[Rfam]
RNA sequence: GCGGGCCUAGCUUAUUUUUCCAUGGUGGGGAACUGGGCCAAGGUAUUG
Numbered sequence: 001g002c003g004g005g006c007c008u009a010g011c012u013u014a015u016u017u018u019u020c021c022a023u024g025g026u027g028g029g030g031a032a033c034u035g036g037g038c039c040a041a042g043g044u045a046u047u048g
Stems, first nucleotide, its partner, number of pairs: 006043003010038005018031004
Hepatitis C virus stem-loop SL1412 RNA: a 48-nucleotide RNA. HCV_SL1412 is a stem-loop in the coding region of the C (core) gene.